[Rfam]
RNA sequence: GGUCACGAGUGCCAGCGUUCAGCCCCGGCUUGCUGGCCGGCAACCCUCCAACCGCGGUGGGGUGCCCCGGGUGAGGACCAGGCCUGUCGCACACGGCGACGGGCAAGCGCGGGCC
Numbered sequence: 001g002g003u004c005a006c007g008a009g010u011g012c013c014a015g016c017g018u019u020c021a022g023c024c025c026c027g028g029c030u031u032g033c034u035g036g037c038c039g040g041c042a043a044c045c046c047u048c049c050a051a052c053c054g055c056g057g058u059g060g061g062g063u064g065c066c067c068c069g070g071g072u073g074a075g076g077a078c079c080a081g082g083c084c085u086g087u088c089g090c091a092c093a094c095g096g097c098g099a100c101g102g103g104c105a106a107g108c109g110c111g112g113g114c115c
Stems, first nucleotide, its partner, number of pairs: 001079004009038001011037006021030002039066003044062003048057002082104009
Dot-bracket structure: ((((....(.((((((....((......)).)))))))(((..(((.((......))..))).))).........))))..(((((((((.....)))))))))...........
Overview
The record is a 115-nucleotide RNA from Amycolatopsis xylanica, which matches "SAM (S-adenosyl methionine) riboswitch aptamer" in Rfam. Taxonomically the source falls in Amycolatopsis (Bacteria, Bacillati, Actinomycetes, Pseudonocardiaceae). The family is grouped with related families in Rfam's "SAM clan". The match comes from Rfam's covariance-model search (116 bits). The base pairs follow the family's consensus structure, which is taken from published work.